[Rfam]
RNA sequence: UGUGCCCGGGUAAGUCCUAUACGGCCAGCUCCUUGUGAAUCCCCCAGGGCUUGACCGCAGCAAGGGUAGCCGGUUGUAGCGGCGCGAUGUAGAUAGCUUACCCACCU
Dot-bracket structure: .......((((((((.(((((((((........................................................)).)).)))))...))))))))....
The family of this 107-nucleotide RNA sequence from Barnesiella viscericola is "Bacteroidales small SRP". Taxonomically the source falls in Barnesiella viscericola (Bacteria, Pseudomonadati, Barnesiellaceae, Barnesiella). By type it is a non-coding RNA gene.